[Rfam]
Nucleotides: 164
Stems, first nucleotide, its partner, number of pairs: 011149004018048006049144006059071002072129003080105004108123004
Number, partner (000 for none) and nucleotide at each position: 001000u002000g003000u004000c005000g006000g007000g008000c009000g010000c011149c012148g013147c014146c015000g016000a017000g018048u019047c020046g021045c022044c023043u024000c025000g026000c027000c028000a029000c030000u031000c032000c033000g034000c035000u036000g037000g038000a039000g040000u041000g042000c043023g044022g045021g046020c047019g048018a049144g050143c051142c052141g053140g054139g055000g056000a057000c058000c059071c060070a061000c062000c063000g064000c065000a066000g067000u068000a069000c070060u071059g072129g073128g074127g075000u076000g077000a078000a079000u080105c081104c082103u083102g084000c085000u086000c087000c088000g089000a090000g091000c092000u093000c094000c095000g096000c097000u098000c099000g100000c101000g102083c103082a104081g105080g106000u107000a108123g109122g110121g111120c112000u113000u114000c115000u116000u117000c118000c119000c120111g121110c122109c123108c124000g125000a126000a127074c128073c129072c130000g131000u132000c133000a134000g135000c136000u137000a138000a139054c140053u141052c142051g143050g144049u145000a146014g147013g148012c149011g150000g151000c152000c153000g154000u155000g156000g157000a158000a159000g160000a161000a162000a163000u164000g
The family of this 164-nucleotide RNA from Blastococcus mobilis is "c-di-AMP riboswitch aptamer (ydaO/yuaA leader)". About the family: This family represents a conserved RNA structure found upstream of the ydaO and yuaA genes in Bacillus subtilis and related genes in other bacteria. The ydaO/yuaA element is thought to act as a genetic 'off' switch for the ydaO and yuaA genes in its native state. Lineage of the source: Bacteria > Bacillati > Actinomycetes > Geodermatophilales > Blastococcus.